[Rfam]
RNA sequence: CGGCUGCAAUCAACAUUCAUUGCUGUCGGUGGGUUUUUAGUAUAAAUCAGCUCACUGAUCAAUGAAUGCAAACUGCAGACCA
Numbered sequence: 001c002g003g004c005u006g007c008a009a010u011c012a013a014c015a016u017u018c019a020u021u022g023c024u025g026u027c028g029g030u031g032g033g034u035u036u037u038u039a040g041u042a043u044a045a046a047u048c049a050g051c052u053c054a055c056u057g058a059u060c061a062a063u064g065a066a067u068g069c070a071a072a073c074u075g076c077a078g079a080c081c082a
Base pairs, nucleotide, nucleotide: 002081003080004078005077006076007075008074014068015067016066017065018064019063020062021061022060025059026058027057028056029055030054031053033051034050035049